[Rfam]
RNA: Fluoride riboswitch aptamer (crcB RNA motif)
RNA sequence: AUUUCAUAUGGUGAUGGAGUUCCACCAAUUUAACCGCUCAAAUAGAGAUAAUGACUCCUGCUAGAAA
Numbered sequence: 001a002u003u004u005c006a007u008a009u010g011g012u013g014a015u016g017g018a019g020u021u022c023c024a025c026c027a028a029u030u031u032a033a034c035c036g037c038u039c040a041a042a043u044a045g046a047g048a049u050a051a052u053g054a055c056u057c058c059u060g061c062u063a064g065a066a067a
Base pairs, nucleotide, nucleotide: 010026011025012024013023016058017057018056019055020054021053037047038046039045